[Rfam]
RNA sequence: UGACCUGGAUCUAAAUGACCUGGAUCUAAAUGACCAGGAUCUAAAUGACCAGGAUCUAAAUGACCUGGAUCUAAAUGACCAGGAUCUAAAU
Numbered sequence: 001u002g003a004c005c006u007g008g009a010u011c012u013a014a015a016u017g018a019c020c021u022g023g024a025u026c027u028a029a030a031u032g033a034c035c036a037g038g039a040u041c042u043a044a045a046u047g048a049c050c051a052g053g054a055u056c057u058a059a060a061u062g063a064c065c066u067g068g069a070u071c072u073a074a075a076u077g078a079c080c081a082g083g084a085u086c087u088a089a090a091u
Stems, first nucleotide, its partner, number of pairs: 002026002004023002007020002010018002062086002064083005070078002
Dot-bracket structure: .((((.((.((.....)))).)).))...................................(((((((.((.....))))))).)).....
RNA: pan motif